[Rfam]
RNA sequence: ACAUGAGAAAGGAGGUGAUCGGAGAAGUGAAGACUCUUCGGACCCAUGAGGUGGUCGCGCGCUAGUCGCGUGCGCCCUUGAGCGUUUCGCGCUGUCGGCCUGACGACCUGAUCACUCGUCGGACCGGUCGGCGCACGGGACGGGUAGCGAGUUCCUCGCGACCACCGGAUCCCGCGGGUGCCGUGCCCUCGUCCAGCACGGCAGGAGGUUCGACCUCCAGCCCGCGGGCUCUUUGCUG
Numbered sequence: 001a002c003a004u005g006a007g008a009a010a011g012g013a014g015g016u017g018a019u020c021g022g023a024g025a026a027g028u029g030a031a032g033a034c035u036c037u038u039c040g041g042a043c044c045c046a047u048g049a050g051g052u053g054g055u056c057g058c059g060c061g062c063u064a065g066u067c068g069c070g071u072g073c074g075c076c077c078u079u080g081a082g083c084g085u086u087u088c089g090c091g092c093u094g095u096c097g098g099c100c101u102g103a104c105g106a107c108c109u110g111a112u113c114a115c116u117c118g119u120c121g122g123a124c125c126g127g128u129c130g131g132c133g134c135a136c137g138g139g140a141c142g143g144g145u146a147g148c149g150a151g152u153u154c155c156u157c158g159c160g161a162c163c164a165c166c167g168g169a170u171c172c173c174g175c176g177g178g179u180g181c182c183g184u185g186c187c188c189u190c191g192u193c194c195a196g197c198a199c200g201g202c203a204g205g206a207g208g209u210u211c212g213a214c215c216u217c218c219a220g221c222c223c224g225c226g227g228g229c230u231c232u233u234u235g236c237u238g
Stems, first nucleotide, its partner, number of pairs: 015058005060149005066143001069137008167232003171228009181201006